RNA sequence: AGUCUGUUUCAGGGCGGGGUGUAAGUCCCCACCGGUGGUGAGGCCCCAGGGCCAAGCCCACGACCGCUUUUCCAUGCGGAAAGCGCUGAUCUGGUGAGAUUCCAGAGCCGACGGUUAAAGUCCGGAUGAAAGAAACUGCGG
Numbered sequence: 001a002g003u004c005u006g007u008u009u010c011a012g013g014g015c016g017g018g019g020u021g022u023a024a025g026u027c028c029c030c031a032c033c034g035g036u037g038g039u040g041a042g043g044c045c046c047c048a049g050g051g052c053c054a055a056g057c058c059c060a061c062g063a064c065c066g067c068u069u070u071u072c073c074a075u076g077c078g079g080a081a082a083g084c085g086c087u088g089a090u091c092u093g094g095u096g097a098g099a100u101u102c103c104a105g106a107g108c109c110g111a112c113g114g115u116u117a118a119a120g121u122c123c124g125g126a127u128g129a130a131a132g133a134a135a136c137u138g139c140g141g
Stems, first nucleotide, its partner, number of pairs: 004138001006136005017029003031121002033110002035061004056108002065085002090106005112124003
RNA: FMN riboswitch aptamer (RFN element)
Organism: Anaerofilum hominis